[Rfam]
RNA sequence: GCAGCGCCCGGCCAACCAGCCGGGCGAGGAUUGAAAC
Number, nucleotide and partner (000 for none) at each position: 001g000002c000003a000004g000005c026006g025007c024008c023009c022010g021011g020012c019013c000014a000015a000016c000017c000018a000019g012020c011021c010022g009023g008024g007025c006026g005027a000028g000029g000030a000031u000032u000033g000034a000035a000036a000037c000